[Rfam]
This 229-nucleotide sequence from Streptomyces sp. ADI97-07 belongs to the Rfam family "Streptomyces sRNA 4677". Rfam describes the family as follows. Located in the intergenic region between anti-sigma factor SCO4677 gene and a putative regulatory protein gene SCO4676. scr4677 expression requires the SCO4677 activity and scr4677 sRNA itself seem to affect the levels of the SCO4676-associated transcripts. A reference for the family is Hindra et al. (2014), "Complex intra-operonic dynamics mediated by a small RNA in Streptomyces coelicolor", PLoS One. The source organism's lineage runs through Bacteria, Bacillati, Actinomycetota, Kitasatosporales and Streptomyces.

RNA sequence: CGCCACGACGCAUAAAGCUUUGAAGAACUGGAAGAAACAACCUUCCCCACCCCAACCCGACCCCACCCACCACCCGGUCACUCACACGGGUGAAUUAGGGCAACUGGGCUGGAUUUGCGGCGGGUUGCCGGGCAUAUGCUCGCCCCGACAACCACAGACAUGCGACGGCCCCCGGCGGGACAGCAAUCCCGACCGAGGGCCUGACCACGAGGAAGUAAGAGGCUUCCCG
Numbered sequence: 001c002g003c004c005a006c007g008a009c010g011c012a013u014a015a016a017g018c019u020u021u022g023a024a025g026a027a028c029u030g031g032a033a034g035a036a037a038c039a040a041c042c043u044u045c046c047c048c049a050c051c052c053c054a055a056c057c058c059g060a061c062c063c064c065a066c067c068c069a070c071c072a073c074c075c076g077g078u079c080a081c082u083c084a085c086a087c088g089g090g091u092g093a094a095u096u097a098g099g100g101c102a103a104c105u106g107g108g109c110u111g112g113a114u115u116u117g118c119g120g121c122g123g124g125u126u127g128c129c130g131g132g133c134a135u136a137u138g139c140u141c142g143c144c145c146c147g148a149c150a151a152c153c154a155c156a157g158a159c160a161u162g163c164g165a166c167g168g169c170c171c172c173c174g175g176c177g178g179g180a181c182a183g184c185a186a187u188c189c190c191g192a193c194c195g196a197g198g199g200c201c202u203g204a205c206c207a208c209g210a211g212g213a214a215g216u217a218a219g220a221g222g223c224u225u226c227c228c229g
Base pairs, nucleotide, nucleotide: 002206010063078093079092080091081090082089083088108144110142111141112140167201168200169199170198171197173195174194175193177190178189179188180187211227212226213225214224215223